Source information
Shown here is a 457-nucleotide sequence from Dicrurus megarhynchus, a member of the family "Vertebrate telomerase RNA". Its Rfam clan is "Telomerase clan". Rfam classes the family as a non-coding RNA gene. Telomerase is a ribonucleoprotein reverse transcriptase that synthesises telomeric DNA. Telomerase RNAs differ greatly in sequence and structure between vertebrates, ciliates and yeasts, but they share a 5' pseudoknot structure close to the template sequence. Vertebrate telomerase RNAs have a 3' H/ACA snoRNA-like domain.

RNA sequence: CGUGCCGGGGUGGCCAGGUCCUGCAGCUAACUAACCCUAAUGGCGGCUGCGCCCCUCACGCCCGCCCGCUGUUUUACUCGCUGACUUUCAGCGGGCGAAGGGAGCGGCCCAAGGAAAGGGGAGGGAAGCGGGGGGGGAAAGAGGUACGGCCUCAAAAAAAAGCCAGCGAGGGGGAUCUACACCCCGGCCCACCCUGGGGUCUCUGUCCCUCCUCCGCAACCGGGAUGCUCUCGCCGUCGCCCCUCGUGGAGGCCGCGGUCGGCAGGCUCAGCGCCACUACCGCCGCGAAGAGCUCGUCUCUGUCAGCCUCGGCGGCGGCCGGGACCGGAGGGCCGGCCCGCCCACCCUGGGUAGCCGGGGGACCCCAGCAGAACAAAACGGGCGCGGCGCCGCUGGGCGCUGAGCAGCCGCGGCUCCCUCAGACGUGGGGUGCGCGGCCGGCGCCGCCCCGACACCC
Numbered sequence: 001c002g003u004g005c006c007g008g009g010g011u012g013g014c015c016a017g018g019u020c021c022u023g024c025a026g027c028u029a030a031c032u033a034a035c036c037c038u039a040a041u042g043g044c045g046g047c048u049g050c051g052c053c054c055c056u057c058a059c060g061c062c063c064g065c066c067c068g069c070u071g072u073u074u075u076a077c078u079c080g081c082u083g084a085c086u087u088u089c090a091g092c093g094g095g096c097g098a099a100g101g102g103a104g105c106g107g108c109c110c111a112a113g114g115a116a117a118g119g120g121g122a123g124g125g126a127a128g129c130g131g132g133g134g135g136g137g138a139a140a141g142a143g144g145u146a147c148g149g150c151c152u153c154a155a156a157a158a159a160a161a162g163c164c165a166g167c168g169a170g171g172g173g174g175a176u177c178u179a180c181a182c183c184c185c186g187g188c189c190c191a192c193c194c195u196g197g198g199g200u201c202u203c204u205g206u207c208c209c210u211c212c213u214c215c216g217c218a219a220c221c222g223g224g225a226u227g228c229u230c231u232c233g234c235c236g237u238c239g240c241c242c243c244u245c246g247u248g249g250a251g252g253c254c255g256c257g258g259u260c261g262g263c264a265g266g267c268u269c270a271g272c273g274c275c276a277c278u279a280c281c282g283c284c285g286c287g288a289a290g291a292g293c294u295c296g297u298c299u300c301u302g303u304c305a306g307c308c309u310c311g312g313c314g315g316c317g318g319c320c321g322g323g324a325c326c327g328g329a330g331g332g333c334c335g336g337c338c339c340g341c342c343c344a345c346c347c348u349g350g351g352u353a354g355c356c357g358g359g360g361g362a363c364c365c366c367a368g369c370a371g372a373a374c375a376a377a378a379c380g381g382g383c384g385c386g387g388c389g390c391c392g393c394u395g396g397g398c399g400c401u402g403a404g405c406a407g408c409c410g411c412g413g414c415u416c417c418c419u420c421a422g423a424c425g426u427g428g429g430g431u432g433c434g435c436g437g438c439c440g441g442c443g444c445c446g447c448c449c450c451g452a453c454a455c456c457c
Base pairs, nucleotide, nucleotide: 004188005187006186007185008184009183010182011181012180016178017177018176019175020174021173022172051105052104054102055101063097064096065095066094067093068092069091070090071089080167081166082165083164085162086160087159088158194368195367196366197365198364199363200362230323231322232321233320235318238314239313240312241311254287255286256285257284258283260282261281262280265275266274267273289301290300291299292298380449381448382447383446386445387444388443389442390441391440408437409436410435411434412433415430416429417428418427
A reference for the family is Fragnet et al. (2005), "Comparative functional study of the viral telomerase RNA based on natural mutations", J Biol Chem. Its family is annotated with telomerase catalytic core complex, telomere maintenance via telomerase and telomerase activity in the Gene Ontology.